[Rfam]
RNA sequence: AACCAACAACAACCUUUUUAUUUUUCAUUUUACUCGAUAUCGAGUAAUUACUCCUUUUUCCACCAGGUCUAACCAGCCUGGUGGUUUUUUUG
Numbered sequence: 001a002a003c004c005a006a007c008a009a010c011a012a013c014c015u016u017u018u019u020a021u022u023u024u025u026c027a028u029u030u031u032a033c034u035c036g037a038u039a040u041c042g043a044g045u046a047a048u049u050a051c052u053c054c055u056u057u058u059u060c061c062a063c064c065a066g067g068u069c070u071a072a073c074c075a076g077c078c079u080g081g082u083g084g085u086u087u088u089u090u091u092g
Base pairs, nucleotide, nucleotide: 030047031046032045033044034043035042060084061083062082063081064080065079066078067077069076

The family of this 92-nucleotide RNA from Enterococcus canis is "Enterococcus sRNA 84". On this family, see Innocenti et al., RNA 2015: "Whole-genome mapping of 5' RNA ends in bacteria by tagged sequencing: a comprehensive view in Enterococcus faecalis". Taxonomically the source falls in Enterococcus (Bacteria, Bacillati, Bacillota, Bacilli).